A member of the RNA family "Bacterial large subunit ribosomal RNA" from Saccharicrinis fermentans, 249 nucleotides of a longer RNA.
RNA sequence: GGAUAUUUGAGAAGACCUGACGUUAGUACGAGAGGACCGCGUUGGACAUACCUCUGGUGCACCAGUUGUUCCGCCAGGAGCAUCGCUGGGUAGCUAUGUGUGGAAGGGAUAAGUGCUGAAAGCAUCUAAGCACGAAGCCUGCUUCAAGAUGAGAUAUCCUUAUUAGGGACGUUGUAGACUACGACGUUGAUAGGCCGUAGGUGUAAAGGUGGUAACACCAAAGCCGAGCGGUACUAAUUGCCCGAAACU
Numbered sequence: 001g002g003a004u005a006u007u008u009g010a011g012a013a014g015a016c017c018u019g020a021c022g023u024u025a026g027u028a029c030g031a032g033a034g035g036a037c038c039g040c041g042u043u044g045g046a047c048a049u050a051c052c053u054c055u056g057g058u059g060c061a062c063c064a065g066u067u068g069u070u071c072c073g074c075c076a077g078g079a080g081c082a083u084c085g086c087u088g089g090g091u092a093g094c095u096a097u098g099u100g101u102g103g104a105a106g107g108g109a110u111a112a113g114u115g116c117u118g119a120a121a122g123c124a125u126c127u128a129a130g131c132a133c134g135a136a137g138c139c140u141g142c143u144u145c146a147a148g149a150u151g152a153g154a155u156a157u158c159c160u161u162a163u164u165a166g167g168g169a170c171g172u173u174g175u176a177g178a179c180u181a182c183g184a185c186g187u188u189g190a191u192a193g194g195c196c197g198u199a200g201g202u203g204u205a206a207a208g209g210u211g212g213u214a215a216c217a218c219c220a221a222a223g224c225c226g227a228g229c230g231g232u233a234c235u236a237a238u239u240g241c242c243c244g245a246a247a248c249u
Stems, first nucleotide, its partner, number of pairs: 001159008011145004017045007047102005055096003062089005067082006106140003113133005163245001166243003170186005191236003194232005200225002204220001208219004
Record summary: The organism belongs to Saccharicrinis fermentans, within Bacteria.